[Rfam]
RNA sequence: AUUUUGAAAAUGAUGAAAAUAACGCGGAUGAAAUAUAUGUCCGAGAGCGCAAAAAAUGUGUGGAUAUUUCCGUUGCCUUCCUUCUGAUUCAAAAU
Numbered sequence: 001a002u003u004u005u006g007a008a009a010a011u012g013a014u015g016a017a018a019a020u021a022a023c024g025c026g027g028a029u030g031a032a033a034u035a036u037a038u039g040u041c042c043g044a045g046a047g048c049g050c051a052a053a054a055a056a057u058g059u060g061u062g063g064a065u066a067u068u069u070c071c072g073u074u075g076c077c078u079u080c081c082u083u084c085u086g087a088u089u090c091a092a093a094a095u
Stems, first nucleotide, its partner, number of pairs: 003094003025072004
RNA: Small nucleolar RNA Z13/snr52
Organism: Schizosaccharomyces pombe